[Rfam]
RNA sequence: CCUUUGCUUUAACAUGGAGGUACCUGCUGCCUAAUAAAGUAAGUGCUUCCAUGUUUCAGUGGCGG
Numbered sequence: 001c002c003u004u005u006g007c008u009u010u011a012a013c014a015u016g017g018a019g020g021u022a023c024c025u026g027c028u029g030c031c032u033a034a035u036a037a038a039g040u041a042a043g044u045g046c047u048u049c050c051a052u053g054u055u056u057c058a059g060u061g062g063c064g065g
Base pairs, nucleotide, nucleotide: 001065002064005061006060007059008058011055012054013053014052015051016050017049018048019047020046021045022044023043025041026040027039028038

mir-302 microRNA precursor family: a 65-nucleotide RNA from Chaetops frenatus. A reference for the family is Suh et al. (2004), "Human embryonic stem cells express a unique set of microRNAs", Dev Biol. The organism belongs to Chaetops, within Eukaryota. A search with the family's covariance model found it, with a score of 70 bits. Gene Ontology terms of the family: RISC complex and miRNA-mediated post-transcriptional gene silencing.